The record is a 76-nucleotide RNA sequence from Microcebus murinus, which matches "mir-320 microRNA precursor family" in Rfam.
The family has 38 seed sequences and 659 matches in Rfam 15.1.
The literature on the family includes a 2006 paper in Genome Res by Berezikov et al., "Many novel mammalian microRNA candidates identified by extensive cloning and RAKE analysis".
The match comes from Rfam's covariance-model search (76 bits).

[Rfam]
RNA sequence: GGAAAAACAGGCCUUCUCUUCCCUGUUCUUCCCGGAGUUGGGAAAAGCUGGGUUGAGAGAGGGGAAAAAGGAAUGA
Numbered sequence: 001g002g003a004a005a006a007a008c009a010g011g012c013c014u015u016c017u018c019u020u021c022c023c024u025g026u027u028c029u030u031c032c033c034g035g036a037g038u039u040g041g042g043a044a045a046a047g048c049u050g051g052g053u054u055g056a057g058a059g060a061g062g063g064g065a066a067a068a069a070g071g072a073a074u075g076a
Stems, first nucleotide, its partner, number of pairs: 014059005021052003025048001029044006
Dot-bracket structure: .............(((((..(((.(...((((((....))))))...).)))..))))).................